[Rfam]
RNA: TPP riboswitch aptamer (THI element)
Nucleotides: 100
Stems, first nucleotide, its partner, number of pairs: 007087004011050004016044001017029004036043002056081003062075004
Number, partner (000 for none) and nucleotide at each position: 001000u002000g003000c004000c005000u006000u007087a008086c009085c010084u011050c012049g013048g014047g015000g016044u017029g018028c019027c020026c021000c022000a023000a024000a025000a026020g027019g028018g029017c030000u031000g032000a033000g034000a035000u036043g037042c038000a039000g040000a041000u042037g043036c044016g045000a046000a047014c048013c049012c050011g051000u052000u053000g054000a055000a056081c057080c058079u059000g060000a061000u062075c063074c064073g065072g066000u067000u068000a069000a070000a071000a072065c073064c074063g075062g076000c077000g078000g079058a080057g081056g082000g083000a084010a085009g086008g087007u088000c089000c090000g091000g092000c093000g094000c095000c096000c097000a098000u099000g100000g